[Rfam]
RNA sequence: UUUAAAUACAGCAGUGGAUAUCCGUGUUCCAUGUUUGAUUGUCUUUUUUAUUUAAAAAAUUUAUGAAAAAAUUAAAAAAAUAAUUAAACAUAAAGUACUAUUCAUGUUUUAUCAUCCAAUAACAAUGAAAAUACUAAUCAUAAUUUUUUUAAAUAAAACGAACGAUCAAACAUUAGACACACUACACUGGAUAUGGUCACG
Numbered sequence: 001u002u003u004a005a006a007u008a009c010a011g012c013a014g015u016g017g018a019u020a021u022c023c024g025u026g027u028u029c030c031a032u033g034u035u036u037g038a039u040u041g042u043c044u045u046u047u048u049u050a051u052u053u054a055a056a057a058a059a060u061u062u063a064u065g066a067a068a069a070a071a072u073u074a075a076a077a078a079a080a081u082a083a084u085u086a087a088a089c090a091u092a093a094a095g096u097a098c099u100a101u102u103c104a105u106g107u108u109u110u111a112u113c114a115u116c117c118a119a120u121a122a123c124a125a126u127g128a129a130a131a132u133a134c135u136a137a138u139c140a141u142a143a144u145u146u147u148u149u150u151a152a153a154u155a156a157a158a159c160g161a162a163c164g165a166u167c168a169a170a171c172a173u174u175a176g177a178c179a180c181a182c183u184a185c186a187c188u189g190g191a192u193a194u195g196g197u198c199a200c201g
Stems, first nucleotide, its partner, number of pairs: 027177002031173002034170009044160001046158006

The family of this 201-nucleotide sequence from Oryza punctata is "MIR812 microRNA precursor family".
The source organism's lineage runs through Eukaryota, Streptophyta, Tracheophyta, Poaceae and Oryza.